[Rfam]
RNA sequence: UCUAGAACUCGACAUAUAGGCUGAACACUAAACAGUGUCUGGGCUGCAGGGCAGAUUCAGACUUCUCCGUUGUUGCUAUAAUUUGCACUUGACAACGACCUUUUUAAAUCUUGGACUUCUGAUGAAAGUUUUAGGCCCAUGUUUUAGCUUUCCAUC
Numbered sequence: 001u002c003u004a005g006a007a008c009u010c011g012a013c014a015u016a017u018a019g020g021c022u023g024a025a026c027a028c029u030a031a032a033c034a035g036u037g038u039c040u041g042g043g044c045u046g047c048a049g050g051g052c053a054g055a056u057u058c059a060g061a062c063u064u065c066u067c068c069g070u071u072g073u074u075g076c077u078a079u080a081a082u083u084u085g086c087a088c089u090u091g092a093c094a095a096c097g098a099c100c101u102u103u104u105u106a107a108a109u110c111u112u113g114g115a116c117u118u119c120u121g122a123u124g125a126a127a128g129u130u131u132u133a134g135g136c137c138c139a140u141g142u143u144u145u146a147g148c149u150u151u152c153c154a155u156c
Stems, first nucleotide, its partner, number of pairs: 003154001005152003008147002011145002014142004019137002021134005027129003035123002041119003045115001048112004054105002060099001063097001072088002
RNA: MIR2912 microRNA precursor family